The record is an 88-nucleotide RNA from Cavia porcellus, which matches "Small nucleolar RNA SNORD116" in Rfam. The literature on the family includes a 2000 paper in Proc Natl Acad Sci U S A by Cavaille et al., "Identification of brain-specific and imprinted small nucleolar RNA genes exhibiting an unusual genomic organization". Taxonomically the source falls in Cavia (Eukaryota, Opisthokonta, Chordata, Tetrapoda). It scores 57 bits against the family's covariance model. Rfam links the family to the GO terms RNA processing and nucleolus. The family's RNA type in Rfam is C/D-box small nucleolar RNA.
[Rfam]
Nucleotides: 088
Base pairs, nucleotide, nucleotide: 001088002087003086004085005084025055026054027053028052029051031047032046
Number, partner (000 for none) and nucleotide at each position: 001088g002087g003086g004085u005084u006000g007000g008000u009000g010000a011000u012000g013000a014000c015000a016000c017000c018000a019000u020000a021000a022000u023000a024000a025055u026054a027053u028052u029051c030000c031047u032046u033000a034000g035000a036000a037000a038000a039000g040000c041000u042000c043000a044000a045000c046032a047031a048000a049000a050000u051029g052028a053027g054026u055025g056000c057000a058000a059000a060000c061000u062000c063000u064000g065000u066000c067000a068000u069000u070000c071000u072000c073000a074000u075000u076000g077000u078000g079000a080000c081000u082000g083000a084005g085004g086003u087002c088001u